[Rfam]
RNA sequence: AGCCACGCAGUGGACACAAAGCGAACUAUUCUUUCGCCUUUUACUAAAGAAUACCGUGUGUUCGCUGCAAUUAGUGGCAUACACUAAUUUUUGGAGAGGUCCAGUUCUUUUGGAUUG
Number, nucleotide and partner (000 for none) at each position: 001a000002g000003c077004c076005a075006c074007g000008c067009a066010g065011u064012g063013g062014a061015c060016a059017c058018a057019a000020a000021g000022c000023g000024a000025a000026c000027u053028a052029u051030u050031c049032u048033u047034u046035c000036g000037c000038c000039u000040u000041u000042u000043a000044c000045u000046a034047a033048a032049g031050a030051a029052u028053a027054c000055c000056g000057u018058g017059u016060g015061u014062u013063c012064g011065c010066u009067g008068c000069a000070a000071u000072u000073a000074g006075u005076g004077g003078c000079a000080u000081a000082c000083a000084c000085u000086a000087a000088u000089u000090u000091u000092u000093g000094g000095a000096g000097a000098g116099g115100u114101c113102c112103a111104g000105u000106u000107c000108u000109u000110u000111u103112g102113g101114a100115u099116u098117g000

U5 spliceosomal RNA: a 117-nucleotide RNA from Olea europaea. Rfam describes the family as follows. U5 RNA is a component of both types of known spliceosome. The precise function of this molecule is unknown, though it is known that the 5' loop is required for splice site selection and p220 binding, and that both the 3' stem-loop and the Sm site are important for Sm protein binding and cap methylation. The base pairs follow the family's consensus structure, which is taken from published work. Taxonomically the source falls in Olea europaea (Eukaryota, Embryophyta, Gunneridae, lamiids). By type it is a spliceosomal small nuclear RNA.